[Rfam]
The record is a 114-nucleotide RNA sequence from Nitrogeniibacter mangrovi, which matches "RT-12 RNA" in Rfam. The family's RNA type in Rfam is small RNA. A search with the family's covariance model found it, with a score of 74 bits.

RNA sequence: UAACAGAUGCGGCUUCGCUCAGUUUAUCGAGCUAGAAGGUGAUGAGAAAUCACUUAGGUAAGCCGGGAAGGGCUUAGGAUGGCCGCAGUCCGCCGCCCUUCCCGGUUUGGCUAG
Number, nucleotide and partner (000 for none) at each position: 001u000002a000003a000004c000005a000006g000007a000008u000009g086010c085011g084012g083013c082014u000015u000016c000017g032018c031019u030020c029021a000022g027023u000024u000025u000026a000027u022028c000029g020030a019031g018032c017033u000034a000035g000036a000037a000038g000039g053040u052041g051042a050043u000044g000045a000046g000047a000048a000049a000050u042051c041052a040053c039054u114055u113056a112057g111058g000059u109060a108061a000062g000063c105064c104065g103066g102067g101068a100069a099070g098071g097072g096073c000074u000075u000076a000077g091078g090079a089080u088081g000082g013083c012084c011085g010086c009087a000088g080089u079090c078091c077092g000093c000094c000095g000096c072097c071098c070099u069100u068101c067102c066103c065104g064105g063106u000107u000108u060109g059110g000111c057112u056113a055114g054